[Rfam]
RNA sequence: AAAAUUAAAAUAAAUUCACCAAAGACAGUGGGAGCGAAAGCUUAAUAUUUCCUACCGAGGUAAUACUAAUAAAAAGUAUUUAUAUCUCUUUUGUCUUUGGCGGAAGAGAUUUUAUUUUUAAAGA
Numbered sequence: 001a002a003a004a005u006u007a008a009a010a011u012a013a014a015u016u017c018a019c020c021a022a023a024g025a026c027a028g029u030g031g032g033a034g035c036g037a038a039a040g041c042u043u044a045a046u047a048u049u050u051c052c053u054a055c056c057g058a059g060g061u062a063a064u065a066c067u068a069a070u071a072a073a074a075a076g077u078a079u080u081u082a083u084a085u086c087u088c089u090u091u092u093g094u095c096u097u098u099g100g101c102g103g104a105a106g107a108g109a110u111u112u113u114a115u116u117u118u119u120a121a122a123g124a
Stems, first nucleotide, its partner, number of pairs: 028055006034041002085109010
Dot-bracket structure: ...........................((((((((....))........)))))).............................((((((((((.....))))))))))...............

Rfam assigns this 124-nucleotide RNA from Haploplasma axanthum to the family "Ribosomal protein L10 leader". Taxonomically the source falls in Haploplasma (Bacteria, Mycoplasmatota, Mollicutes, Acholeplasmataceae). A search with the family's covariance model found it, with a score of 83 bits. By type it is a cis-regulatory leader. The family's consensus secondary structure was predicted with CMfinder.